Annotation: The family of this 54-nucleotide RNA is "nhaA-I RNA". The family's RNA type in Rfam is riboswitch.
[Rfam]
RNA sequence: GGGUGCGACUGAACUGACUCAGUCGCAGGUUUCUUGGAUGGUCGGCCGCCAUCC
Numbered sequence: 001g002g003g004u005g006c007g008a009c010u011g012a013a014c015u016g017a018c019u020c021a022g023u024c025g026c027a028g029g030u031u032u033c034u035u036g037g038a039u040g041g042u043c044g045g046c047c048g049c050c051a052u053c054c
Stems, first nucleotide, its partner, number of pairs: 005026008036054007
Record summary:
About the family: Acidobacteria, Alphaproteobacteria, Betaproteobacteria and Gammaproteobacteria, Verrucomicrobia, cand. division NC10.